[Rfam]
RNA sequence: CCCCCCUCGGGCAGAAUACGCGGCUUGCAAAUAACCGGCGCUCACAGGCGUCGGUUAUUUUUUUGC
Number, nucleotide and partner (000 for none) at each position: 001c000002c000003c000004c000005c000006c000007u000008c000009g000010g000011g021012c020013a000014g000015a000016a000017u000018a000019c000020g012021c011022g000023g000024c000025u000026u000027g000028c000029a000030a000031a000032u057033a056034a055035c054036c053037g052038g051039c050040g049041c000042u000043c000044a000045c000046a000047g000048g000049c040050g039051u038052c037053g036054g035055u034056u033057a032058u000059u000060u000061u000062u000063u000064u000065g000066c000

The record is a 66-nucleotide RNA from Chimaeribacter arupi, which matches "Enterobacterial sRNA STnc240" in Rfam. Pairs were carried over by alignment from the consensus structure, which was predicted with WAR.